Small nucleolar RNA SNORD111: an 82-nucleotide RNA sequence from Sagittarius serpentarius.
The family's consensus secondary structure was predicted with RNAalifold.
Its family is annotated with RNA processing and nucleolus in the Gene Ontology.
The literature on the family includes a 2002 paper in Mol Cell Biol by Galardi et al., "Purified box C/D snoRNPs are able to reproduce site-specific 2'-O-methylation of target RNA in vitro".
NCBI's taxonomy places the organism under Eukaryota, Teleostomi, Tetrapoda, Telluraves, Sagittarius.
The family has 5 seed sequences and 894 matches in Rfam 15.1.
A search with the family's covariance model found it, with a score of 61 bits.

RNA sequence: UAGCCUGAAAUGAUGUUAUGAAUUCAUGUCUCUUCUCUGAGAUGUAUUGUGGAGACAAUUAGAUGUGUUUCUGAUCAGGCUU
Numbered sequence: 001u002a003g004c005c006u007g008a009a010a011u012g013a014u015g016u017u018a019u020g021a022a023u024u025c026a027u028g029u030c031u032c033u034u035c036u037c038u039g040a041g042a043u044g045u046a047u048u049g050u051g052g053a054g055a056c057a058a059u060u061a062g063a064u065g066u067g068u069u070u071c072u073g074a075u076c077a078g079g080c081u082u
Base pairs, nucleotide, nucleotide: 002081003080004079005078